[Rfam]
RNA sequence: GUAAGAAAUCUUUGUAGUUUUCUGUACCCUCGUGAAAACUGAAGAGAUUUUUUACAG
Numbered sequence: 001g002u003a004a005g006a007a008a009u010c011u012u013u014g015u016a017g018u019u020u021u022c023u024g025u026a027c028c029c030u031c032g033u034g035a036a037a038a039c040u041g042a043a044g045a046g047a048u049u050u051u052u053u054a055c056a057g
Stems, first nucleotide, its partner, number of pairs: 001055013015041008023032002
Shown here is a 57-nucleotide RNA sequence from Caenorhabditis japonica, a member of the family "mir-255 microRNA precursor family". A reference for the family is Kato et al. (2009), "Dynamic expression of small non-coding RNAs, including novel microRNAs and piRNAs/21U-RNAs, during Caenorhabditis elegans development", Genome Biol. The organism belongs to Caenorhabditis, within Eukaryota.